[Rfam]
Shown here is a 148-nucleotide RNA sequence from Pseudomonas cavernae, a member of the family "PrrF RNA".
RNA sequence: UUGACUUAGAAAUGAGAAUUGUUAUUAUUCUCUCAACUGAUCGCGAGAUCAGCCGAUAAGCUGAGAGACUAUCCAGUCGGACUUUUCAGAUUAUCUCCUCAUCAGGCUAAUCACGGUUUUUGACCCGGCUCUGCCGGGUCUUUUUUUU
Numbered sequence: 001u002u003g004a005c006u007u008a009g010a011a012a013u014g015a016g017a018a019u020u021g022u023u024a025u026u027a028u029u030c031u032c033u034c035a036a037c038u039g040a041u042c043g044c045g046a047g048a049u050c051a052g053c054c055g056a057u058a059a060g061c062u063g064a065g066a067g068a069c070u071a072u073c074c075a076g077u078c079g080g081a082c083u084u085u086u087c088a089g090a091u092u093a094u095c096u097c098c099u100c101a102u103c104a105g106g107c108u109a110a111u112c113a114c115g116g117u118u119u120u121u122g123a124c125c126c127g128g129c130u131c132u133g134c135c136g137g138g139u140c141u142u143u144u145u146u147u148u
Stems, first nucleotide, its partner, number of pairs: 034055001037052006061089003064085004069079001097106003122140008

Rfam describes the family as follows. PrrF RNA is a small RNA involved in iron homeostasis and is found exclusively in Pseudomonas species. Pairs were carried over by alignment from the consensus structure, which is taken from published work. It is annotated as a small RNA.